RNA sequence: AGUCGACGAGGACGGAACAGGCAGCCGUCGCACCCUAGCGGUUUUAAAGAGAUGUGGGCGGGUCAUCCCACCGGGGCU
Numbered sequence: 001a002g003u004c005g006a007c008g009a010g011g012a013c014g015g016a017a018c019a020g021g022c023a024g025c026c027g028u029c030g031c032a033c034c035c036u037a038g039c040g041g042u043u044u045u046a047a048a049g050a051g052a053u054g055u056g057g058g059c060g061g062g063u064c065a066u067c068c069c070a071c072c073g074g075g076g077c078u
Base pairs, nucleotide, nucleotide: 001078002077003076004075007073008072011029012028013027014026015025020064021063022062031049032042033041034040054071055070056069057068058067
A member of the RNA family "skipping-rope RNA", 78 nucleotides long. It is one of the family's seed sequences.